Shown here is a 114-nucleotide RNA sequence from Nomascus leucogenys, a member of the family "Mitochondrial DNA control region secondary structure A". For this family Rfam cites "Evidence for variable selective pressures at a large secondary structure of the human mitochondrial DNA control region" (Pereira et al., Mol Biol Evol, 2008). Rfam classes the family as an antisense RNA. Pairs were carried over by alignment from the consensus structure, which is taken from published work.
RNA sequence: GUUUUCUAUUUGUCAUGAAUUUUAAAUACUAUAUAAGUAUUGACCAUUAAUACUGACACAUUAAUACUUUUAUGUACGUCGUGCAUUGUUGCUAUUCACCAUGAAUAAUAUAUA
Numbered sequence: 001g002u003u004u005u006c007u008a009u010u011u012g013u014c015a016u017g018a019a020u021u022u023u024a025a026a027u028a029c030u031a032u033a034u035a036a037g038u039a040u041u042g043a044c045c046a047u048u049a050a051u052a053c054u055g056a057c058a059c060a061u062u063a064a065u066a067c068u069u070u071u072a073u074g075u076a077c078g079u080c081g082u083g084c085a086u087u088g089u090u091g092c093u094a095u096u097c098a099c100c101a102u103g104a105a106u107a108a109u110a111u112a113u114a
Base pairs, nucleotide, nucleotide: 005105007103008102009101012097018090019089022036023035024034026032027031037067038066041063042062043061072086073085074084075083076082